[Rfam]
RNA sequence: CUUUCCGAGGAGCGUUGCGAGGCCGCCGCCAGGCGCCCCAGGCUCGGAACUUCGAUCUGCAACCGCGCUCACCCGCA
Dot-bracket structure: ..((((((............(((..(.....)..)))......))))))............................